[Rfam]
Small nucleolar RNA SNORA44: a 132-nucleotide sequence from Buceros rhinoceros. A reference for the family is Huttenhofer et al. (2001), "RNomics: an experimental approach that identifies 201 candidates for novel, small, non-messenger RNAs in mouse", EMBO J. Rfam classes the family as an H/ACA-box small nucleolar RNA. Rfam links the family to the GO terms nucleolus and RNA processing. The source organism's lineage runs through Eukaryota, Opisthokonta, Neognathae, Neoaves and Buceros rhinoceros. About the family: ACA44 is a member of the H/ACA class of snoRNA that guide the sites of modification of uridines to pseudouridines.
RNA sequence: GCGCAUGUUGAUCCAAGAGCUGCGGCUCCCUACCGUGGCUGCAGCUCUCCAACAACAUGCCAGAGCAACGGGAAGGUCUUUGACUGCUGGGGCCUCUCCUGCCUCUGGCUGUCACUCACCCCUCCUAUAUUA
Numbered sequence: 001g002c003g004c005a006u007g008u009u010g011a012u013c014c015a016a017g018a019g020c021u022g023c024g025g026c027u028c029c030c031u032a033c034c035g036u037g038g039c040u041g042c043a044g045c046u047c048u049c050c051a052a053c054a055a056c057a058u059g060c061c062a063g064a065g066c067a068a069c070g071g072g073a074a075g076g077u078c079u080u081u082g083a084c085u086g087c088u089g090g091g092g093c094c095u096c097u098c099c100u101g102c103c104u105c106u107g108g109c110u111g112u113c114a115c116u117c118a119c120c121c122c123u124c125c126u127a128u129a130u131u132a
Stems, first nucleotide, its partner, number of pairs: 013044001018040007071125003075121002086112002089105004